[Rfam]
RNA sequence: UCUAGAACUCGAGAUAUGGGCUGACCACUUAACAGUGUUUAGGUUGCAAGACAGAUUCCGACUUCUCUAUUGUUGUUAUAAUUUAAACUUGAAAAUGGUCCUUUUAAAUCUUGGACUCUCAUGAAAGUUUUAGACCUAUGUCUUAACUUUCUAUU
Numbered sequence: 001u002c003u004a005g006a007a008c009u010c011g012a013g014a015u016a017u018g019g020g021c022u023g024a025c026c027a028c029u030u031a032a033c034a035g036u037g038u039u040u041a042g043g044u045u046g047c048a049a050g051a052c053a054g055a056u057u058c059c060g061a062c063u064u065c066u067c068u069a070u071u072g073u074u075g076u077u078a079u080a081a082u083u084u085a086a087a088c089u090u091g092a093a094a095a096u097g098g099u100c101c102u103u104u105u106a107a108a109u110c111u112u113g114g115a116c117u118c119u120c121a122u123g124a125a126a127g128u129u130u131u132a133g134a135c136c137u138a139u140g141u142c143u144u145a146a147c148u149u150u151c152u153a154u155u
Stems, first nucleotide, its partner, number of pairs: 003153005009145001011144010021133004027128003035122003041119003045115001048112004054105002060099001062098002068092001072088003
RNA: MIR2912 microRNA precursor family